The record is a 94-nucleotide RNA from Seinonella peptonophila, which matches "Glycine riboswitch aptamer" in Rfam.
Its family is annotated with glycine biosynthetic process in the Gene Ontology.
A search with the family's covariance model found it, with a score of 61 bits.
About the family: This family represents the bacterial glycine riboswitch.
RNA sequence: UUGAAGGCGGAAGGAGAGACCACAACUUGUGGCGCCGAAGGAGCAAACCAUUCAGAAUGGUGAAACUCUCAGGCAAAAGGAGGUCCGCUGGACG
Numbered sequence: 001u002u003g004a005a006g007g008c009g010g011a012a013g014g015a016g017a018g019a020c021c022a023c024a025a026c027u028u029g030u031g032g033c034g035c036c037g038a039a040g041g042a043g044c045a046a047a048c049c050a051u052u053c054a055g056a057a058u059g060g061u062g063a064a065a066c067u068c069u070c071a072g073g074c075a076a077a078a079g080g081a082g083g084u085c086c087g088c089u090g091g092a093c094g
Stems, first nucleotide, its partner, number of pairs: 006089006020032004034074003037070002041068003047061004